Rfam assigns this 54-nucleotide RNA sequence from Lentivirus capartenc to the family "ribosomal frameshift element".
[Rfam]
RNA sequence: CGGGGGAUACGUGUGGUGCCGUCCGCUCCCCCUAUGGCAUAACAAAUGCACCAC
Numbered sequence: 001c002g003g004g005g006g007a008u009a010c011g012u013g014u015g016g017u018g019c020c021g022u023c024c025g026c027u028c029c030c031c032c033u034a035u036g037g038c039a040u041a042a043c044a045a046a047u048g049c050a051c052c053a054c
Stems, first nucleotide, its partner, number of pairs: 002032006013054007035044002
NCBI's taxonomy places the organism under Viruses, Riboviria, Revtraviricetes, Ortervirales, Caprine arthritis encephalitis virus.